[Rfam]
RNA: mir-2060 microRNA precursor family
Organism: Branchiostoma belcheri
RNA sequence: UGAUACAUGUGUGAGGAUGGUGUUCAGCACCAAGGACAGGUGUGAUACAUGUGUGAGGAUGGUGUUCAGCACCAAGGACAGGUGUGUUAUUUG
Numbered sequence: 001u002g003a004u005a006c007a008u009g010u011g012u013g014a015g016g017a018u019g020g021u022g023u024u025c026a027g028c029a030c031c032a033a034g035g036a037c038a039g040g041u042g043u044g045a046u047a048c049a050u051g052u053g054u055g056a057g058g059a060u061g062g063u064g065u066u067c068a069g070c071a072c073c074a075a076g077g078a079c080a081g082g083u084g085u086g087u088u089a090u091u092u093g
Stems, first nucleotide, its partner, number of pairs: 004084003008080003018074007026066007034054001036052003040048003